This 169-nucleotide sequence from Tumebacillus flagellatus belongs to the Rfam family "c-di-AMP riboswitch aptamer (ydaO/yuaA leader)". It scores 73 bits against the family's covariance model.
RNA sequence: GAUGAAUCAAAGCCGAAUCCAUAGAUUCAACCUAUGGUACGGGGGACGCAACACUUAUGGGGUGAAUGUGCAAGACCCGGCAUGCCCGCAACGCAGGGAGCCGGCACUUGACUAGGGAACCUCUUCCCGAACCCGUCAACUAACCUCGGAGGCAUUUAGGAGGGCAAAU
Numbered sequence: 001g002a003u004g005a006a007u008c009a010a011a012g013c014c015g016a017a018u019c020c021a022u023a024g025a026u027u028c029a030a031c032c033u034a035u036g037g038u039a040c041g042g043g044g045g046a047c048g049c050a051a052c053a054c055u056u057a058u059g060g061g062g063u064g065a066a067u068g069u070g071c072a073a074g075a076c077c078c079g080g081c082a083u084g085c086c087c088g089c090a091a092c093g094c095a096g097g098g099a100g101c102c103g104g105c106a107c108u109u110g111a112c113u114a115g116g117g118a119a120c121c122u123c124u125u126c127c128c129g130a131a132c133c134c135g136u137c138a139a140c141u142a143a144c145c146u147c148g149g150a151g152g153c154a155u156u157u158a159g160g161a162g163g164g165c166a167a168a169u
Stems, first nucleotide, its partner, number of pairs: 012153003019037006040148005049059002060134003068112002115128004